mir-8517 microRNA precursor family: a 108-nucleotide sequence from Plutella xylostella.
Lineage of the source: Eukaryota > Ecdysozoa > Arthropoda > Amphiesmenoptera > Plutella.
It scores 71 bits against the family's covariance model.
[Rfam]
RNA sequence: CAAUGAACGGUUUUAGCUAUUAAACUGUUUUGUCCCUCUCUAACGCAGAACAAAUUGUUCUUUGAUAGAGGGGAACAAAACAGUUCAAUAGCUAAUACGUCCUAAAGU
Numbered sequence: 001c002a003a004u005g006a007a008c009g010g011u012u013u014u015a016g017c018u019a020u021u022a023a024a025c026u027g028u029u030u031u032g033u034c035c036c037u038c039u040c041u042a043a044c045g046c047a048g049a050a051c052a053a054a055u056u057g058u059u060c061u062u063u064g065a066u067a068g069a070g071g072g073g074a075a076c077a078a079a080a081c082a083g084u085u086c087a088a089u090a091g092c093u094a095a096u097a098c099g100u101c102c103u104a105a106a107g108u
Stems, first nucleotide, its partner, number of pairs: 001107001004104002011097001013095009023085006029069006049059004